[Rfam]
RNA sequence: AUACUAAAUAUGUUGUUAAGAUAACCUAGUGAAGACGAGGUAAGCACUCGGCUAGGAAGUUGUGGUAAUAAAUCCUGUUAACUUAUGCUUAGGAUACUGAGUGUAGGUACUAUCUAGGGUUUAGGUAACUGAACUUUAGGGGGUUGGGAAGACCUUGGGUAAAGCAACUUGCGUAGGUUAUUUGCUAGUAAAAAGCAAGUGUAAACGGUGGUCACAUAAAUAGACGCUCUGGUAGAGAAUAAGCCUAUAAGGACUGGAUGUGGUGUCCUUUAUUCUGUAGGUACUAAACCAAGUAUGUGAUUGGGACCUGACGUUAUGGAAACAUGGCUAUAACACUAAAACAUUGUACGAGUAGCAUAAUGGCACUAUGGUUUAAAAGCGGUGGUGCUGGGUCUUUUUCUAAUUUGAUACUUAAUUAAUUAUAUUUGGGCAAUUAAAAUAUUAAAUCUGAAUGUUCGUGUGAAAGUUGGGGGUAAGCAAUCCCACCUAGCUCUUGAAUUGAAUAGGAAGUUUAGAGGUAGCUCCUUUAGGCUCAGACCUAUUUAAGCUAUGGCUGAAUAUUACAGCGAGUAAUUGUAGUAAGACGAAAGUCUAUUUUGACAACACAUAAUUA
Numbered sequence: 001a002u003a004c005u006a007a008a009u010a011u012g013u014u015g016u017u018a019a020g021a022u023a024a025c026c027u028a029g030u031g032a033a034g035a036c037g038a039g040g041u042a043a044g045c046a047c048u049c050g051g052c053u054a055g056g057a058a059g060u061u062g063u064g065g066u067a068a069u070a071a072a073u074c075c076u077g078u079u080a081a082c083u084u085a086u087g088c089u090u091a092g093g094a095u096a097c098u099g100a101g102u103g104u105a106g107g108u109a110c111u112a113u114c115u116a117g118g119g120u121u122u123a124g125g126u127a128a129c130u131g132a133a134c135u136u137u138a139g140g141g142g143g144u145u146g147g148g149a150a151g152a153c154c155u156u157g158g159g160u161a162a163a164g165c166a167a168c169u170u171g172c173g174u175a176g177g178u179u180a181u182u183u184g185c186u187a188g189u190a191a192a193a194a195g196c197a198a199g200u201g202u203a204a205a206c207g208g209u210g211g212u213c214a215c216a217u218a219a220a221u222a223g224a225c226g227c228u229c230u231g232g233u234a235g236a237g238a239a240u241a242a243g244c245c246u247a248u249a250a251g252g253a254c255u256g257g258a259u260g261u262g263g264u265g266u267c268c269u270u271u272a273u274u275c276u277g278u279a280g281g282u283a284c285u286a287a288a289c290c291a292a293g294u295a296u297g298u299g300a301u302u303g304g305g306a307c308c309u310g311a312c313g314u315u316a317u318g319g320a321a322a323c324a325u326g327g328c329u330a331u332a333a334c335a336c337u338a339a340a341a342c343a344u345u346g347u348a349c350g351a352g353u354a355g356c357a358u359a360a361u362g363g364c365a366c367u368a369u370g371g372u373u374u375a376a377a378a379g380c381g382g383u384g385g386u387g388c389u390g391g392g393u394c395u396u397u398u399u400c401u402a403a404u405u406u407g408a409u410a411c412u413u414a415a416u417u418a419a420u421u422a423u424a425u426u427u428g429g430g431c432a433a434u435u436a437a438a439a440u441a442u443u444a445a446a447u448c449u450g451a452a453u454g455u456u457c458g459u460g461u462g463a464a465a466g467u468u469g470g471g472g473g474u475a476a477g478c479a480a481u482c483c484c485a486c487c488u489a490g491c492u493c494u495u496g497a498a499u500u501g502a503a504u505a506g507g508a509a510g511u512u513u514a515g516a517g518g519u520a521g522c523u524c525c526u527u528u529a530g531g532c533u534c535a536g537a538c539c540u541a542u543u544u545a546a547g548c549u550a551u552g553g554c555u556g557a558a559u560a561u562u563a564c565a566g567c568g569a570g571u572a573a574u575u576g577u578a579g580u581a582a583g584a585c586g587a588a589a590g591u592c593u594a595u596u597u598u599g600a601c602a603a604c605a606c607a608u609a610a611u612u613a
Stems, first nucleotide, its partner, number of pairs: 014603001017600001019598003025056005036050004058169006077113002081108002084105009114139011142154004177575001179573001182570002191562001194561001195555001198345004207337004211301006227237004243282006251276003256268003261291004303366001305364001307362001313328005349466001355461004360456001447537004470487002472484002489549003500546001502544002506540002510533001512530007582593004
Shown here is a 613-nucleotide RNA sequence, a member of the family "ROOL RNA". The family's consensus secondary structure is taken from published work. Rfam classes the family as a small RNA. Firmicutes, Fusobacteria (1 example), Tenericutes (1 example).